[Rfam]
RNA sequence: GCCGAGCAAGUAGCGACUGCUUGUGACCCGAGCGGGGGCAUUAAGGCGGUGCGGAUGCCAAUUGUGGCGCCUGGGCCUGGGUCUGGUGUCGCAUUCUGCGGCCCGCCCGUUCCAAGUUGCGUAGUGGGCUGUUGGGCGCUUCGGCGAAGGCCUUGGCGUCCCAGCACCUAGAGCGGCGGGCAACGCGUGAGGCUGGCUUCACAGAGCAGCGAUUACCGCCCGCUUCCAACGGUGGAAGGAUAACGGGCCGCUGCGCCUCCAGGCCCGCUUUAGACCCGUGCGCCCUCUCUGGCAGACCACCAUCUUU
Number, nucleotide and partner (000 for none) at each position: 001g039002c038003c037004g022005a021006g020007c019008a018009a000010g000011u000012a000013g000014c000015g000016a000017c000018u008019g007020c006021u005022u004023g000024u000025g000026a000027c036028c035029c034030g000031a000032g000033c000034g029035g028036g027037g003038g002039c001040a000041u000042u000043a306044a305045g304046g303047c000048g301049g300050u299051g298052c000053g297054g000055a000056u294057g293058c292059c291060a290061a288062u000063u000064g285065u000066g283067g000068c000069g000070c000071c278072u000073g276074g275075g000076c273077c000078u000079g266080g265081g264082u263083c262084u261085g260086g259087u000088g257089u000090c255091g000092c253093a252094u000095u000096c000097u000098g251099c250100g249101g248102c247103c246104c245105g244106c000107c239108c238109g000110u237111u236112c235113c234114a233115a000116g230117u229118u228119g227120c000121g226122u000123a224124g223125u222126g167127g000128g165129c164130u163131g162132u000133u000134g161135g160136g159137c158138g157139c156140u155141u000142c000143g152144g151145c150146g000147a000148a000149g000150g145151c144152c143153u000154u000155g140156g139157c138158g137159u136160c135161c134162c131163a130164g129165c128166a000167c126168c173169u000170a000171g000172a000173g168174c000175g220176g219177c218178g217179g216180g000181c000182a000183a000184c000185g000186c211187g210188u209189g000190a000191g000192g000193c204194u203195g202196g000197c000198u000199u000200c000201a000202c195203a194204g193205a000206g000207c000208a000209g188210c187211g186212a000213u000214u000215a000216c179217c178218g177219c176220c175221c000222g125223c124224u123225u000226c121227c119228a118229a117230c116231g000232g000233u114234g113235g112236a111237a110238g108239g107240a000241u000242a000243a000244c105245g104246g103247g102248c101249c100250g099251c098252u093253g092254c000255g090256c000257c088258u000259c086260c085261a084262g083263g082264c081265c080266c079267g000268c000269u000270u000271u000272a000273g076274a000275c074276c073277c000278g071279u000280g000281c000282g000283c066284c000285c064286u000287c000288u061289c000290u060291g059292g058293c057294a056295g000296a000297c053298c051299a050300c049301c048302a000303u046304c045305u044306u043307u000
The family of this 307-nucleotide sequence from Panicum hallii is "Plant signal recognition particle RNA". The literature on the family includes a 2009 paper in RNA Biol by Rosenblad et al., "Kinship in the SRP RNA family".